[Rfam]
RNA sequence: GCCCUUCCCUCACCGGGCGUGCGCACUUAUAUUCCUCAGUGCCGGCGCAAGCCGGCUAUGGCGAUAAACGGGCCUCAUAAUAAACCUUUCGGACCCGGGGGCAGUACCCGGCGCCUCCACCAAAGUCCGCCGUGAAAAACGGGCUUUGGCGGGGGCGAAACAGGAUCGACGAGGGCGUAAAAGUUGUUCUUUCGCUCGGCAUGGUACCGCCGAUAUCGGGCCAAUCGUAUAGUUGCCAACGACAACUAUGCUCCGGUUGCUCAGGCCGCGUAAGCGGUUUGAAAGACCAAGCCUAAAGCCCUGAUGGGUUAAGCUCCGUCAGGCGGGGUUCGGAGGCACCUGGCAACAGAAGCCUCCACU
Numbered sequence: 001g002c003c004c005u006u007c008c009c010u011c012a013c014c015g016g017g018c019g020u021g022c023g024c025a026c027u028u029a030u031a032u033u034c035c036u037c038a039g040u041g042c043c044g045g046c047g048c049a050a051g052c053c054g055g056c057u058a059u060g061g062c063g064a065u066a067a068a069c070g071g072g073c074c075u076c077a078u079a080a081u082a083a084a085c086c087u088u089u090c091g092g093a094c095c096c097g098g099g100g101g102c103a104g105u106a107c108c109c110g111g112c113g114c115c116u117c118c119a120c121c122a123a124a125g126u127c128c129g130c131c132g133u134g135a136a137a138a139a140c141g142g143g144c145u146u147u148g149g150c151g152g153g154g155g156c157g158a159a160a161c162a163g164g165a166u167c168g169a170c171g172a173g174g175g176c177g178u179a180a181a182a183g184u185u186g187u188u189c190u191u192u193c194g195c196u197c198g199g200c201a202u203g204g205u206a207c208c209g210c211c212g213a214u215a216u217c218g219g220g221c222c223a224a225u226c227g228u229a230u231a232g233u234u235g236c237c238a239a240c241g242a243c244a245a246c247u248a249u250g251c252u253c254c255g256g257u258u259g260c261u262c263a264g265g266c267c268g269c270g271u272a273a274g275c276g277g278u279u280u281g282a283a284a285g286a287c288c289a290a291g292c293c294u295a296a297a298g299c300c301c302u303g304a305u306g307g308g309u310u311a312a313g314c315u316c317c318g319u320c321a322g323g324c325g326g327g328g329u330u331c332g333g334a335g336g337c338a339c340c341u342g343g344c345a346a347c348a349g350a351a352g353c354c355u356c357c358a359c360u
Base pairs, nucleotide, nucleotide: 041056042055043054044053045052060196061195062194063193064192070189071188072187073186076183085175086174087173089172090171091170095111096110097109098108099107112157113156114155115154116153117152118151197212198211199210200209202223203222204221207219208218326341327340328339329338332357333356334355335354336353337352

Description
The record is a 360-nucleotide RNA sequence from Pseudorhodoplanes sinuspersici, which matches "Alphaproteobacteria transfer-messenger RNA" in Rfam. Taxonomically the source falls in Pseudorhodoplanes (Bacteria, Pseudomonadota, Alphaproteobacteria, Hyphomicrobiales). Rfam classes the family as a non-coding RNA gene.